[Rfam]
RNA sequence: GCGGAUGGCUGGAUGACCGCGGCUUCCCAUAGCUCCGUCUUGCGGACAGCUGGGAGGACGAGGAAAGUCCGGACUCCAUGAAGCGACGGUGCCGGAUAACGUCCGGCGGGGGUAACCCUAGGGAAAGCGCAACAGAGAACAGACCGCCAUGGUCUCGGCCAUGGUAAGGGUGAAACGGUGGGGUAAGAGCCCACCGCGGGACUGGCAACAGGACCGGCUUGGCAAGCCCCACCGGGAGCAACGCCGAAUAGGGAUCGCGCGCCGCCUUGGCGGCAGGGGAGCUUCGCCCCGAGCGGUCCGGGUUGGCGGCUUGAGACGGCGCGUGAGCGUGCGUCCAGAGGAAUGGUCAUCCAGGGGGCAACCCCGGACAGAAUCCGGCUUACAGGCCAUCCGCGCAG
Number, nucleotide and partner (000 for none) at each position: 001g394002c393003g392004g391005a390006u389007g388008g387009c386010u385011g383012g351013a350014u349015g348016a347017c346018c345019g000020c060021g059022g000023c057024u056025u055026c054027c053028c052029a000030u000031a000032g000033c000034u000035c000036c000037g000038u000039c000040u000041u000042g000043c000044g000045g000046a000047c000048a000049g000050c000051u000052g028053g027054g026055a025056g024057g023058a000059c021060g020061a000062g000063g000064a000065a381066a380067g379068u000069c378070c377071g376072g375073a374074c238075u237076c236077c235078a000079u000080g000081a000082a000083g284084c000085g282086a000087c234088g233089g232090u231091g230092c106093c105094g104095g103096a102097u000098a000099a000100c000101g000102u096103c095104c094105g093106g092107c121108g119109g118110g117111g116112g000113u000114a000115a000116c111117c110118c109119u108120a000121g107122g229123g228124a000125a000126a000127g227128c226129g223130c222131a000132a000133c000134a000135g000136a000137g000138a000139a000140c000141a000142g000143a000144c169145c168146g165147c164148c163149a162150u161151g160152g159153u158154c000155u000156c000157g000158g153159c152160c151161a150162u149163g148164g147165u146166a000167a000168g145169g144170g000171u000172g000173a000174a000175a000176c000177g195178g194179u193180g192181g191182g190183g000184u000185a000186a000187g000188a000189g000190c182191c181192c180193a179194c178195c177196g218197c216198g215199g214200g000201a000202c211203u210204g209205g000206c000207a000208a000209c204210a203211g202212g000213a000214c199215c198216g197217g000218c196219u000220u000221g000222g130223c129224a000225a000226g128227c127228c123229c122230c091231a090232c089233c088234g087235g077236g076237a075238g074239c000240a000241a000242c308243g307244c306245c305246g000247a000248a000249u000250a000251g000252g299253g298254a297255u296256c295257g294258c000259g000260c000261g000262c000263c000264g000265c000266c000267u000268u000269g000270g000271c000272g000273g000274c000275a000276g290277g289278g288279g287280a000281g000282c085283u000284u083285c000286g000287c279288c278289c277290c276291g000292a000293g000294c257295g256296g255297u254298c253299c252300g000301g000302g000303u000304u000305g245306g244307c243308g242309g000310c000311u000312u000313g000314a000315g335316a334317c333318g332319g330320c329321g328322c327323g000324u000325g000326a000327g322328c321329g320330u319331g000332c318333g317334u316335c315336c000337a000338g000339a000340g000341g000342a000343a000344u000345g018346g017347u016348c015349a014350u013351c012352c000353a000354g000355g000356g000357g000358g000359c000360a000361a000362c000363c000364c000365c000366g000367g000368a000369c000370a000371g000372a000373a000374u073375c072376c071377g070378g069379c067380u066381u065382a000383c011384a000385g010386g009387c008388c007389a006390u005391c004392c003393g002394c001395g000396c000397a000398g000